Shown here is a 39-nucleotide sequence from Escherichia coli, a member of the family "JUMPstart RNA".
The family's consensus secondary structure is taken from published work.
It is one of the family's seed sequences.
[Rfam]
RNA sequence: CAGUGCUCUGGUAGCUGUAAAGCCAGGGGCGGUAGCGUG
Numbered sequence: 001c002a003g004u005g006c007u008c009u010g011g012u013a014g015c016u017g018u019a020a021a022g023c024c025a026g027g028g029g030c031g032g033u034a035g036c037g038u039g
Base pairs, nucleotide, nucleotide: 008026009025010024011023012022